[Rfam]
RNA sequence: CCAACAGGGACACCCGGGGAGGGUCGUUGCCCUCCCCGGCUCUGUCCAAGCGGCGUAUGGGAGCGUAGGGGUCACCCCGUGACGUACAGUCCCGUUCCGUGCUGUUGGAGAUCAAGCCGGGCUUCGUGUCUGCGCCUGCAUAUUCCUACUGCUUCUCUGAGCCCCCGGGCCGUGACAGAGGAGAGAAACCAUGCAGGAUACAAGC
Numbered sequence: 001c002c003a004a005c006a007g008g009g010a011c012a013c014c015c016g017g018g019g020a021g022g023g024u025c026g027u028u029g030c031c032c033u034c035c036c037c038g039g040c041u042c043u044g045u046c047c048a049a050g051c052g053g054c055g056u057a058u059g060g061g062a063g064c065g066u067a068g069g070g071g072u073c074a075c076c077c078c079g080u081g082a083c084g085u086a087c088a089g090u091c092c093c094g095u096u097c098c099g100u101g102c103u104g105u106u107g108g109a110g111a112u113c114a115a116g117c118c119g120g121g122c123u124u125c126g127u128g129u130c131u132g133c134g135c136c137u138g139c140a141u142a143u144u145c146c147u148a149c150u151g152c153u154u155c156u157c158u159g160a161g162c163c164c165c166c167g168g169g170c171c172g173u174g175a176c177a178g179a180g181g182a183g184a185g186a187a188a189c190c191a192u193g194c195a196g197g198a199u200a201c202a203a204g205c
Base pairs, nucleotide, nucleotide: 001108002107003106004105005104006103007102008047009046010045011044012043014039015038016037018035019034020033021032022031023030024029050100051099052098053097059093060092061091062090063087065085066084068080135197136196137195138194139193140192141191152183153182154181155180156179157178161170162169163168